[Rfam]
About this RNA
The record is a 312-nucleotide sequence from Eudyptes chrysocome, which matches "7SK RNA" in Rfam. A search with the family's covariance model found it, with a score of 321 bits. Lineage of the source: Eukaryota > Eumetazoa > Sauria > Saurischia > Eudyptes. Rfam's curators write: 7SK was discovered as an abundant small nuclear RNA in the mid-70s but a possible function has only recently been suggested. Two independent studies have found that 7SK RNA binds the CDK9/cyclin T complex (known as elongation factor P-TEFb). P-TEFb activates transcription by phosphorylating the C-terminal domain of RNA polymerase II. This process is negatively regulated by the 7SK RNP. The secondary structure of 7SK RNA shown here was proposed by Wasserman and Steitz on the basis of chemical modification and enzymatic cleavage experiments. This family contains a number of annotated pseudogenes and 7SK derived repeats. It is annotated as a non-coding RNA gene. The family's consensus secondary structure is taken from published work.
RNA sequence: GGAUGUGAGGGCGAUCUGGCUGCGACAUCUGUCACCCCAUUGAUCGCCAGGGUUGAUUCGGCUGAUCUGGCUGGCUAGGCGGGUGUCCCCUUCCUCCCUCACCGCUCCAUGUGCGUCCCUCCCGAAGCUGCGCGCUCGGUCGAAGAGGACGACCUUCCCCGAUAGAGACGUACCGUUCAUCGGUCAAGGAUAUACGGUAGCUGCGCUCCCCUGCUAGAACCUCCAAACAAGCUCAAGGUCCAUUUGUAGGAGAACGUAGGGUAGUCAAGCUUCCAAGACUGCAGAUAAUCCGAGGCGCGAUUAUUGCUAGUU
Number, nucleotide and partner (000 for none) at each position: 001g108002g107003a106004u000005g102006u101007g100008a099009g098010g097011g096012c000013g093014a092015u000016c000017u000018g090019g089020c000021u000022g000023c000024g087025a086026c085027a084028u083029c082030u081031g080032u079033c078034a000035c074036c073037c070038c069039a068040u000041u000042g067043a066044u065045c064046g062047c061048c060049a000050g000051g000052g000053u000054u000055g000056a000057u000058u000059c000060g048061g047062c046063u000064g045065a044066u043067c042068u039069g038070g037071c000072u000073g036074g035075c000076u000077a000078g033079g032080c031081g030082g029083g028084u027085g026086u025087c024088c000089c019090c018091u000092u014093c013094c000095u000096c011097c010098c009099u008100c007101a006102c005103c000104g000105c000106u003107c002108c001109a000110u000111g000112u000113g000114c000115g000116u000117c170118c000119c167120u166121c165122c139123c138124g137125a136126a000127g135128c134129u000130g000131c000132g000133c000134g128135c127136u125137c124138g123139g122140u162141c161142g160143a000144a000145g000146a000147g158148g157149a156150c000151g000152a000153c000154c000155u000156u149157c148158c147159c000160c142161g141162a140163u000164a000165g121166a120167g119168a000169c000170g117171u000172a000173c000174c000175g000176u000177u000178c000179a000180u000181c000182g000183g000184u000185c000186a000187a000188g000189g000190a000191u000192a000193u000194a000195c000196g000197g000198u000199a000200g270201c269202u268203g000204c000205g000206c264207u263208c000209c261210c260211c259212u258213g257214c256215u000216a000217g000218a000219a000220c000221c252222u251223c250224c249225a000226a000227a247228c246229a245230a244231g243232c000233u000234c000235a000236a000237g000238g000239u000240c000241c000242a000243u231244u230245u229246g228247u227248a000249g224250g223251a222252g221253a000254a000255c000256g214257u213258a212259g211260g210261g209262u000263a207264g206265u000266c000267a000268a202269g201270c200271u000272u000273c000274c000275a000276a000277g000278a000279c000280u000281g000282c000283a000284g000285a000286u000287a000288a000289u000290c000291c000292g000293a000294g000295g000296c000297g000298c000299g000300a000301u000302u000303a000304u000305u000306g000307c000308u000309a000310g000311u000312u000